[Rfam]
RNA sequence: GGAGGCGGCGACGCCCCCCCGACUUGAGGCUGGCGAUAGCCAGCCUGCCGUCUCCGCAACCCCCUUUUCUGUAGAGCCUCAAGGCGGAUCGGAUCACCGGCCCGCCU
Numbered sequence: 001g002g003a004g005g006c007g008g009c010g011a012c013g014c015c016c017c018c019c020c021g022a023c024u025u026g027a028g029g030c031u032g033g034c035g036a037u038a039g040c041c042a043g044c045c046u047g048c049c050g051u052c053u054c055c056g057c058a059a060c061c062c063c064c065u066u067u068u069c070u071g072u073a074g075a076g077c078c079u080c081a082a083g084g085c086g087g088a089u090c091g092g093a094u095c096a097c098c099g100g101c102c103c104g105c106c107u
Stems, first nucleotide, its partner, number of pairs: 001055010012021002028045007086107002089104001091102002094099001
Source information: Shown here is a 107-nucleotide sequence from Caulobacter radicis, a member of the family "Cauldobacter sRNA CC3552". The organism belongs to Caulobacter, within Bacteria. Rfam classes the family as a small RNA.